[Rfam]
RNA: Small nucleolar RNA SNORA27
RNA sequence: AUGCCCCCUUUCACUUUGUCAACUGGACUUAUGUCUUCAUUUGCCAUUCAAGUGGAGCAAAGGAAAUAACCUUUUAAAACUCAGGCAAGCUUCCUGUUCAUCUUGUAACCUGUCAGGCGAAACAUUG
Numbered sequence: 001a002u003g004c005c006c007c008c009u010u011u012c013a014c015u016u017u018g019u020c021a022a023c024u025g026g027a028c029u030u031a032u033g034u035c036u037u038c039a040u041u042u043g044c045c046a047u048u049c050a051a052g053u054g055g056a057g058c059a060a061a062g063g064a065a066a067u068a069a070c071c072u073u074u075u076a077a078a079a080c081u082c083a084g085g086c087a088a089g090c091u092u093c094c095u096g097u098u099c100a101u102c103u104u105g106u107a108a109c110c111u112g113u114c115a116g117g118c119g120a121a122a123c124a125u126u127g
Stems, first nucleotide, its partner, number of pairs: 032059003036055001040051002043048001070119001072117003082105001083103003088098003